RNA sequence: UGUUCUUCGUGUUCACUGCGAACCUUGAUCUGUUGUUGAGAAUUAAGGCACGCGGUGAAUGCCAAGGGCG
Numbered sequence: 001u002g003u004u005c006u007u008c009g010u011g012u013u014c015a016c017u018g019c020g021a022a023c024c025u026u027g028a029u030c031u032g033u034u035g036u037u038g039a040g041a042a043u044u045a046a047g048g049c050a051c052g053c054g055g056u057g058a059a060u061g062c063c064a065a066g067g068g069c070g
Stems, first nucleotide, its partner, number of pairs: 003068004009062008018053003023048007